[Rfam]
RNA sequence: AUGAAGAUAGCUGGAGAGUGGAGAAAUGACUCUACACCGACGAGGAAAAAUCUUUCAGGUGCAACAGCAAGGACAGCUAUUGGACG
Numbered sequence: 001a002u003g004a005a006g007a008u009a010g011c012u013g014g015a016g017a018g019u020g021g022a023g024a025a026a027u028g029a030c031u032c033u034a035c036a037c038c039g040a041c042g043a044g045g046a047a048a049a050a051u052c053u054u055u056c057a058g059g060u061g062c063a064a065c066a067g068c069a070a071g072g073a074c075a076g077c078u079a080u081u082g083g084a085c086g
Stems, first nucleotide, its partner, number of pairs: 006081008019034004036060003039056002043054003

Description:
A member of the RNA family "Glycine riboswitch aptamer" from Otariodibacter oris, 86 nucleotides long. Gene Ontology term of the family: glycine biosynthetic process. It scores 48 bits against the family's covariance model. This family represents the bacterial glycine riboswitch.